[Rfam]
RNA: mir-44 microRNA precursor family
Organism: Caenorhabditis brenneri
RNA sequence: CUGGAUGUGCUCGUUAGUCAUAGACGAUACACAGAGAACGGUCAUAUGACUAGAGACACAUUCAGCU
Numbered sequence: 001c002u003g004g005a006u007g008u009g010c011u012c013g014u015u016a017g018u019c020a021u022a023g024a025c026g027a028u029a030c031a032c033a034g035a036g037a038a039c040g041g042u043c044a045u046a047u048g049a050c051u052a053g054a055g056a057c058a059c060a061u062u063c064a065g066c067u
Stems, first nucleotide, its partner, number of pairs: 001065009011056002016051007